[Rfam]
RNA: mir-15 microRNA precursor family
Organism: Python bivittatus
RNA sequence: GUCUGCUCUGCUUUAGCAGCACGUAAAUACUGGAGUUUAGAUGCUCUGCCCUCCAGUAUUGCUUUGCUGCUUUAGUCAAGCUGGC
Numbered sequence: 001g002u003c004u005g006c007u008c009u010g011c012u013u014u015a016g017c018a019g020c021a022c023g024u025a026a027a028u029a030c031u032g033g034a035g036u037u038u039a040g041a042u043g044c045u046c047u048g049c050c051c052u053c054c055a056g057u058a059u060u061g062c063u064u065u066g067c068u069g070c071u072u073u074a075g076u077c078a079a080g081c082u083g084g085c
Base pairs, nucleotide, nucleotide: 001085002084003083005081006080015071016070017069018068019067020066021065023063026060027059028058029057030056031055032054033053034052035051